[Rfam]
RNA: ZMP/ZTP riboswitch aptamer (pfl RNA motif)
Organism: Actinoallomurus iriomotensis
RNA sequence: UCUGCGGGCCGUGACUGGCGCUGAAGGUGGAGUCACCACCGGGGAGCGGCCCGGACACCGAGUGCCGUGCGCCUGGGCCGAUCCA
Numbered sequence: 001u002c003u004g005c006g007g008g009c010c011g012u013g014a015c016u017g018g019c020g021c022u023g024a025a026g027g028u029g030g031a032g033u034c035a036c037c038a039c040c041g042g043g044g045a046g047c048g049g050c051c052c053g054g055a056c057a058c059c060g061a062g063u064g065c066c067g068u069g070c071g072c073c074u075g076g077g078c079c080g081a082u083c084c085a
Base pairs, nucleotide, nucleotide: 003055005053006052007051008050009049010048011047012046015043016042017073018072019071020070021069027039028038029037030036064078065077066076